The record is a 219-nucleotide RNA from Paenibacillus sp. 7541, which matches "Lysine riboswitch aptamer" in Rfam. The base pairs follow the family's consensus structure, which is taken from published work. From the family's description: Riboswitches are metabolite binding domains within certain messenger RNAs that serve as precision sensors for their corresponding targets. The organism belongs to Paenibacillus, within Bacteria. The literature on the family includes a 2003 paper in Cell by Mandal et al., "Riboswitches Control Fundamental Biochemical Pathways in Bacillus subtilis and Other Bacteria".
[Rfam]
RNA sequence: CGAUGAGGUAGAGGUUGCGGACGUGAUCAGUAAGCGUGUGAAGGCGAAGAGGAGCCGAUGAAGCACGGGUGAAAGGCGCGUCUGCCGAAGUGUGGGGGGAAUCACUCUUGGCCCCCAUGCUGGGGCCGUUGUCGAAAGAAACGGAACUGUCACGGAGCGCCUGCAUGUUCAUCUAUAAUGUGAACGGCCGGCGGGCAACCGUGUUGCGCUAUCUUCUGG
Numbered sequence: 001c002g003a004u005g006a007g008g009u010a011g012a013g014g015u016u017g018c019g020g021a022c023g024u025g026a027u028c029a030g031u032a033a034g035c036g037u038g039u040g041a042a043g044g045c046g047a048a049g050a051g052g053a054g055c056c057g058a059u060g061a062a063g064c065a066c067g068g069g070u071g072a073a074a075g076g077c078g079c080g081u082c083u084g085c086c087g088a089a090g091u092g093u094g095g096g097g098g099g100a101a102u103c104a105c106u107c108u109u110g111g112c113c114c115c116c117a118u119g120c121u122g123g124g125g126c127c128g129u130u131g132u133c134g135a136a137a138g139a140a141a142c143g144g145a146a147c148u149g150u151c152a153c154g155g156a157g158c159g160c161c162u163g164c165a166u167g168u169u170c171a172u173c174u175a176u177a178a179u180g181u182g183a184a185c186g187g188c189c190g191g192c193g194g195g196c197a198a199c200c201g202u203g204u205u206g207c208g209c210u211a212u213c214u215u216c217u218g219g
Stems, first nucleotide, its partner, number of pairs: 006214006017085009033070001035067005089121010122148002126144005132138001151203005